[Rfam]
RNA sequence: CUAAUGUGAUGAAAACAUUUGUAAACAUUCGCAGUUUCCUCAGGAGUGCACGCAUAGAACCCAAUCUAGUGUAUAAAUGACUGUUAUUAUCCUUCCUUGGAUGUCUGAUUAG
Numbered sequence: 001c002u003a004a005u006g007u008g009a010u011g012a013a014a015a016c017a018u019u020u021g022u023a024a025a026c027a028u029u030c031g032c033a034g035u036u037u038c039c040u041c042a043g044g045a046g047u048g049c050a051c052g053c054a055u056a057g058a059a060c061c062c063a064a065u066c067u068a069g070u071g072u073a074u075a076a077a078u079g080a081c082u083g084u085u086a087u088u089a090u091c092c093u094u095c096c097u098u099g100g101a102u103g104u105c106u107g108a109u110u111a112g
Base pairs, nucleotide, nucleotide: 001112002111003110004109047073048072049071050070051069

Rfam assigns this 112-nucleotide RNA sequence from Ascoidea rubescens to the family "Small nucleolar RNA SNORD14".
From the family's description: U14 small nucleolar RNA (U14 snoRNA) is required for early cleavages of eukaryotic precursor rRNAs. In yeasts, this molecule possess a stem-loop region (known as the Y-domain) which is essential for function. A similar structure, but with a different consensus sequence, is found in plants, but is absent in vertebrates.
By type it is a C/D-box small nucleolar RNA.
A reference for the family is Samarsky et al. (1996), "An essential domain in Saccharomyces cerevisiae U14 snoRNA is absent in vertebrates, but conserved in other yeasts", Nucleic Acids Res.
The family has 18 seed sequences and 4,559 matches in Rfam 15.1.
NCBI's taxonomy places the organism under Eukaryota, Fungi, Saccharomycotina, Ascoidea, Ascoidea rubescens.
The match comes from Rfam's covariance-model search (64 bits).